About this RNA
The family of this 100-nucleotide RNA sequence from Sinocyclocheilus anshuiensis is "Vault RNA". The source organism's lineage runs through Eukaryota, Euteleostomi, Actinopterygii, Osteoglossocephalai and Sinocyclocheilus. Pairs were carried over by alignment from the consensus structure, which is taken from published work. It scores 42 bits against the family's covariance model. It is annotated as a non-coding RNA gene. Rfam describes the family as follows. This family of RNAs are found as part of the enigmatic vault ribonucleoprotein complex. The complex consists of a major vault protein (MVP), two minor vault proteins (VPARP and TEP1), and several small untranslated RNA molecules. The literature on the family includes a 2009 paper in Mol Biol Evol by Stadler et al., "Evolution of Vault RNAs".
Nucleotides: 100
Base pairs, nucleotide, nucleotide: 002095003094004093005092006091007090012084013083015081017080019078020077025070026069027068028067029066
Number, partner (000 for none) and nucleotide at each position: 001000g002095c003094g004093u005092u006091g007090g008000u009000u010000u011000g012084g013083c014000u015081c016000a017080g018000c019078g020077g021000u022000g023000a024000c025070u026069u027068c028067u029066g030000a031000u032000u033000g034000a035000c036000c037000a038000g039000a040000u041000c042000a043000c044000c045000a046000u047000c048000u049000c050000a051000c052000g053000u054000c055000c056000g057000u058000c059000g060000g061000g062000a063000a064000a065000c066029c067028g068027g069026a070025g071000a072000u073000c074000g075000u076000a077020c078019c079000u080017c081015g082000c083013g084012c085000g086000c087000u088000g089000u090007c091006c092005a093004a094003c095002g096000u097000u098000u099000a100000u